[Rfam]
Record summary: Shown here is a 332-nucleotide sequence from Dispira parvispora, a member of the family "Group I catalytic intron". It scores 132 bits against the family's covariance model. Gene Ontology term of the family: Group I intron splicing. The organism belongs to Dispira, within Eukaryota. Rfam describes the family as follows. Group I catalytic introns are large self-splicing ribozymes. They catalyse their own excision from mRNA, tRNA and rRNA precursors in a wide range of organisms. The core secondary structure consists of 9 paired regions (P1-P9). These fold to essentially two domains - the P4-P6 domain (formed from the stacking of P5, P4, P6 and P6a helices) and the P3-P9 domain (formed from the P8, P3, P7 and P9 helices). The secondary structure mark-up for this family represents only this conserved core. Group I catalytic introns often have long ORFs inserted in loop regions. The window size for this search is chosen to minimise search time and catch the small examples. A larger window size will find more matches.

RNA sequence: CCAAGCGUUUAUAAAGCUAUGAGCGCAAAAAAGUAAUGAAUUAAAAUCAUUGCUAGUCUUUGAUGUCAAAAAUUGGGGCGACACUGUCAAAUUGCGGGAACAUCCUAAAGCUCUUGAUACCAAGCCAUUUUGGAAACAAUAAUGGUGGCCGAGUUAAUAGCCCUGGGUAAGGUAAAAACUCAAGAGAUGAAACAAUGGACAAUCCGCAGCCAAGUCCUAAGGUAAAUAUUUAUAAUAAUUACUAUGGAUGCUGUUCACAGACUAAAUGGCAGUGGGCUAGAUUUAUAAUAAAUUUGGCUUAAGAUAUAGUCGAUCCCCCUCGAAAGAGGUGC
Dot-bracket structure: ....(((((((((....))))))))).......................................................(((((.((...((((((....(((...........................................................................................)))...))))))((...((((....((((.............))))...))))...))...[.[[[[[..)).))))).(((((((((.....)))))))))........]]]]]].....((((....))))...